[Rfam]
RNA: Small nucleolar RNA SNORD70
Organism: Saimiri boliviensis
RNA sequence: UUCGUUGUUGUCAAUGAUGUAUUGUUGGAACUGAAUCUAAGUGAUCCGACUCUAUUCGUCACUACCACUGAGACAAUGACGAG
Numbered sequence: 001u002u003c004g005u006u007g008u009u010g011u012c013a014a015u016g017a018u019g020u021a022u023u024g025u026u027g028g029a030a031c032u033g034a035a036u037c038u039a040a041g042u043g044a045u046c047c048g049a050c051u052c053u054a055u056u057c058g059u060c061a062c063u064a065c066c067a068c069u070g071a072g073a074c075a076a077u078g079a080c081g082a083g
Stems, first nucleotide, its partner, number of pairs: 001083012